[Rfam]
RNA sequence: CUUUAUUUUUAUUGUCCACACACGUGUCGACACAUGCGGCUGGGUGCCUGGGAAUUCGCUCCGGGUUGUCGCGUGGGAUGCGUGGAGGUCCAAC
Numbered sequence: 001c002u003u004u005a006u007u008u009u010u011a012u013u014g015u016c017c018a019c020a021c022a023c024g025u026g027u028c029g030a031c032a033c034a035u036g037c038g039g040c041u042g043g044g045u046g047c048c049u050g051g052g053a054a055u056u057c058g059c060u061c062c063g064g065g066u067u068g069u070c071g072c073g074u075g076g077g078a079u080g081c082g083u084g085g086a087g088g089u090c091c092a093a094c
Stems, first nucleotide, its partner, number of pairs: 021084008033075008046066005
The family of this 94-nucleotide RNA from Thiocystis violascens is "t44 RNA". About the family: This family consists of a number of bacterial RNA genes of between 135 and 170 bases in length. It is one of the family's seed sequences. Taxonomically the source falls in Thiocystis violascens (Bacteria, Pseudomonadota, Gammaproteobacteria, Chromatiales).